[Rfam]
RNA sequence: GGAGUCCCAUCAGGAUAAAGCCUAACCAGCAGUCCUGUAGCUAGUUCUUGGAGGCUAAUCGGUAACGGUUGGUUUUAAGCGUAGAACGGCAAUAUAACGGGCCGAAAGCGCAAGCUGAAGUGAUUGAGCCCCGAAAAUACGUGGAGACAGGCCGAUGUAGUUACACAUGCAGAAGGCAGAAUCGGUUCAAGCGAUAAGGUGAGCUUGAACGGGCACUCCGGGGUCUUAGAGCU
Numbered sequence: 001g002g003a004g005u006c007c008c009a010u011c012a013g014g015a016u017a018a019a020g021c022c023u024a025a026c027c028a029g030c031a032g033u034c035c036u037g038u039a040g041c042u043a044g045u046u047c048u049u050g051g052a053g054g055c056u057a058a059u060c061g062g063u064a065a066c067g068g069u070u071g072g073u074u075u076u077a078a079g080c081g082u083a084g085a086a087c088g089g090c091a092a093u094a095u096a097a098c099g100g101g102c103c104g105a106a107a108g109c110g111c112a113a114g115c116u117g118a119a120g121u122g123a124u125u126g127a128g129c130c131c132c133g134a135a136a137a138u139a140c141g142u143g144g145a146g147a148c149a150g151g152c153c154g155a156u157g158u159a160g161u162u163a164c165a166c167a168u169g170c171a172g173a174a175g176g177c178a179g180a181a182u183c184g185g186u187u188c189a190a191g192c193g194a195u196a197a198g199g200u201g202a203g204c205u206u207g208a209a210c211g212g213g214c215a216c217u218c219c220g221g222g223g224u225c226u227u228a229g230a231g232c233u
Stems, first nucleotide, its partner, number of pairs: 012036005020030002023202001025200002038092001040090002044087001046085003049081002051076011126225001128224006144218003150214001151177003156171004182213002185210008
RNA: Group II catalytic intron D1-D4-6